This 111-nucleotide RNA sequence from Xanthoceras sorbifolium belongs to the Rfam family "Plastid-psbA-1 3UTR RNA". From the family's description: Plastid psbA-1 is a non-coding RNA (ncRNA) present in plastids. It was identified in inverted repeat sequences in the 3 prime untranslate region (3UTR) of photosystem II quinone-binding protein (psbA). By type it is a cis-regulatory element. NCBI's taxonomy places the organism under Eukaryota, Tracheophyta, Mesangiospermae, malvids, Xanthoceras. It is one of the family's seed sequences.
RNA sequence: UUGAAGCUUCAUCUACAAAUGGAUAAAAUUUUGAUCUUCGUGUAUACGAGUUUUUGAAAAUAAUGGAGCAAUACCAACCCUCUUCCAAGAAAUUGGUAUUGCUCCAUUAUU
Numbered sequence: 001u002u003g004a005a006g007c008u009u010c011a012u013c014u015a016c017a018a019a020u021g022g023a024u025a026a027a028a029u030u031u032u033g034a035u036c037u038u039c040g041u042g043u044a045u046a047c048g049a050g051u052u053u054u055u056g057a058a059a060a061u062a063a064u065g066g067a068g069c070a071a072u073a074c075c076a077a078c079c080c081u082c083u084u085c086c087a088a089g090a091a092a093u094u095g096g097u098a099u100u101g102c103u104c105c106a107u108u109a110u111u
Stems, first nucleotide, its partner, number of pairs: 008023005062108013077094001081090003